[Rfam]
RNA sequence: CCAGCGGGGACAUCUGGGGAGAUGGCUCUCUCUCAGCUCUGUCCAUGUGGCGAAUGGGAGCCUAGGCCCUUGGGCUCUGUGAUGUACAGUCCCCUUCCACACUGCUGGAGAGCAAGCCGGGCCCCUCAGGUCUGCAACCUGCAUAUUCCUACUGCUUCUCAGAGUCUUUGGACAAUGACUGAGGAGAUAAACCAUGCAGGAGACAGUU
Numbered sequence: 001c002c003a004g005c006g007g008g009g010a011c012a013u014c015u016g017g018g019g020a021g022a023u024g025g026c027u028c029u030c031u032c033u034c035a036g037c038u039c040u041g042u043c044c045a046u047g048u049g050g051c052g053a054a055u056g057g058g059a060g061c062c063u064a065g066g067c068c069c070u071u072g073g074g075c076u077c078u079g080u081g082a083u084g085u086a087c088a089g090u091c092c093c094c095u096u097c098c099a100c101a102c103u104g105c106u107g108g109a110g111a112g113c114a115a116g117c118c119g120g121g122c123c124c125c126u127c128a129g130g131u132c133u134g135c136a137a138c139c140u141g142c143a144u145a146u147u148c149c150u151a152c153u154g155c156u157u158c159u160c161a162g163a164g165u166c167u168u169u170g171g172a173c174a175a176u177g178a179c180u181g182a183g184g185a186g187a188u189a190a191a192c193c194a195u196g197c198a199g200g201a202g203a204c205a206g207u208u
Stems, first nucleotide, its partner, number of pairs: 001108007008044005014036003018029004047100004056093004060087001063084002066080002138200007155186006164173003
A member of the RNA family "Small nucleolar RNA SNORA73 family" from Salvator merianae, 208 nucleotides long.
NCBI's taxonomy places the organism under Eukaryota, Vertebrata, Gnathostomata, Teleostomi, Salvator.
The base pairs follow the family's consensus structure, which is taken from published work.
For this family Rfam cites "5'ETS rRNA processing facilitated by four small RNAs: U14, E3, U17, and U3" (Enright et al., RNA, 1996).
Its Rfam clan is "snR30-U17 clan".
U17 (SNORA73A and SNORA73B) also known as E1 belongs to the H/ACA class of small nucleolar RNAs (snoRNAs). Vertebrate U17 is intron-encoded and ranges in length from 200-230 nucleotides, longer than most snoRNAs. It is one of the most abundant snoRNAs in human cells and is essential for the cleavage of pre-rRNA within the 5' external transcribed spacer (ETS).
Its family is annotated with nucleolus and RNA processing in the Gene Ontology.